[Rfam]
RNA sequence: CUUCACCGAGCCGAGCAGCAGCGCCCGUUCACGAUCCUGACCGUAGGUGGCCAGCAGCGCCUGCGCCUC
Numbered sequence: 001c002u003u004c005a006c007c008g009a010g011c012c013g014a015g016c017a018g019c020a021g022c023g024c025c026c027g028u029u030c031a032c033g034a035u036c037c038u039g040a041c042c043g044u045a046g047g048u049g050g051c052c053a054g055c056a057g058c059g060c061c062u063g064c065g066c067c068u069c
Stems, first nucleotide, its partner, number of pairs: 015024002030065001032059002037054003041050003

ASpks TB sRNA: a 69-nucleotide RNA from Streptomyces sp. PAN_FS17. Lineage of the source: Bacteria > Actinomycetes > Kitasatosporales > Streptomycetaceae > Streptomyces.